Rfam assigns this 72-nucleotide sequence from Medicago truncatula to the family "MIR2629 microRNA precursor family". The match comes from Rfam's covariance-model search (65 bits). NCBI's taxonomy places the organism under Eukaryota, Tracheophyta, Fabales, Papilionoideae, Medicago. The base pairs follow the family's consensus structure, which was predicted with RNAalifold.

RNA sequence: UGUCGAAGUUUUCCUCGUCAGUUAACUGCAGCCGGUUUUUCAAAAUUUCGGCAAUUAACUGUCGAGGGGCAU
Numbered sequence: 001u002g003u004c005g006a007a008g009u010u011u012u013c014c015u016c017g018u019c020a021g022u023u024a025a026c027u028g029c030a031g032c033c034g035g036u037u038u039u040u041c042a043a044a045a046u047u048u049c050g051g052c053a054a055u056u057a058a059c060u061g062u063c064g065a066g067g068g069g070c071a072u
Base pairs, nucleotide, nucleotide: 012068013067015065016064017063019061020060021059022058023057024056025055027053028052029051